The family of this 56-nucleotide RNA sequence from Fertoeibacter niger is "sul1 RNA". Rfam classes the family as a riboswitch.
RNA sequence: ACUGGACCCGGUGCAAUUCCGGGUGGCCCUUCCGGCCGCCGAUCCGCCGGACCACC
Number, nucleotide and partner (000 for none) at each position: 001a000002c000003u000004g000005g000006a024007c023008c022009c021010g020011g019012u000013g000014c000015a000016a000017u000018u000019c011020c010021g009022g008023g007024u006025g000026g000027c000028c000029c000030u000031u051032c050033c049034g048035g047036c046037c000038g000039c000040c000041g000042a000043u000044c000045c000046g036047c035048c034049g033050g032051a031052c000053c000054a000055c000056c000